A member of the RNA family "SAM (S-adenosyl methionine) riboswitch aptamer" from Gulosibacter macacae, 117 nucleotides long. The match comes from Rfam's covariance-model search (62 bits). The literature on the family includes a 2008 paper in RNA by Weinberg et al., "The aptamer core of SAM-IV riboswitches mimics the ligand-binding site of SAM-I riboswitches".
RNA sequence: GUUCAAGAGUUGUGACGCGAAGUACCUGGCUAGUCACGCGACAACCCGAAUCCAUCGAUUCCCGGGUGUCCCAGGGGAAGAACGGGCUCACGAAACAUCGUGAUGCAAGUUUCGAUG
Numbered sequence: 001g002u003u004c005a006a007g008a009g010u011u012g013u014g015a016c017g018c019g020a021a022g023u024a025c026c027u028g029g030c031u032a033g034u035c036a037c038g039c040g041a042c043a044a045c046c047c048g049a050a051u052c053c054a055u056c057g058a059u060u061c062c063c064g065g066g067u068g069u070c071c072c073a074g075g076g077g078a079a080g081a082a083c084g085g086g087c088u089c090a091c092g093a094a095a096c097a098u099c100g101u102g103a104u105g106c107a108a109g110u111u112u113c114g115a116u117g
Stems, first nucleotide, its partner, number of pairs: 001083004009039001011038006021031002040070003045066003086106002088103006
About the family: SAM-IV is a mRNA element that regulates gene expression via direct sensing of S-adenosylmethionine (SAM or AdoMet).